Rfam assigns this 214-nucleotide RNA sequence from Pseudomonas aeruginosa to the family "sucA-II RNA".
NCBI's taxonomy places the organism under Bacteria, Pseudomonadota, Gammaproteobacteria, Pseudomonadaceae, Pseudomonas aeruginosa.
Rfam's curators put it in the seed alignment.
By type it is a cis-regulatory element.

[Rfam]
RNA sequence: CUGUGGCGCCGGAGUUCUUCCGGCGUCGCAGCAACUAAGCGGGCCAAGCUCACAAAGCCAUGGCCCAGAUUUGAAAAAUAUGACCAGCAGGGGCAUCCGGGCUGGUACCCGGACUAUCUGCGGGAUCUGUAGUGGCCAUACCGAUGUCGCUGCCUGAGGACUUCGGAGCCUUCAAGGUUUCGCCAGGUGGUUGUCCCCUUACCGAGGGUGACCU
Numbered sequence: 001c002u003g004u005g006g007c008g009c010c011g012g013a014g015u016u017c018u019u020c021c022g023g024c025g026u027c028g029c030a031g032c033a034a035c036u037a038a039g040c041g042g043g044c045c046a047a048g049c050u051c052a053c054a055a056a057g058c059c060a061u062g063g064c065c066c067a068g069a070u071u072u073g074a075a076a077a078a079u080a081u082g083a084c085c086a087g088c089a090g091g092g093g094c095a096u097c098c099g100g101g102c103u104g105g106u107a108c109c110c111g112g113a114c115u116a117u118c119u120g121c122g123g124g125a126u127c128u129g130u131a132g133u134g135g136c137c138a139u140a141c142c143g144a145u146g147u148c149g150c151u152g153c154c155u156g157a158g159g160a161c162u163u164c165g166g167a168g169c170c171u172u173c174a175a176g177g178u179u180u181c182g183c184c185a186g187g188u189g190g191u192u193g194u195c196c197c198c199u200u201a202c203c204g205a206g207g208g209u210g211a212c213c214u
Base pairs, nucleotide, nucleotide: 001031002030003029004028005027006026007025008024009023010022011021012020013019041066042065043064044063045062046061048058049057050056089199090198091197092196093195094193095192096113097112098111099110100109101108114190115189116188117187118186120183121182122181124180125179126177127176128175132172134170135169136168137166139165143164144163146161147160148159150158151157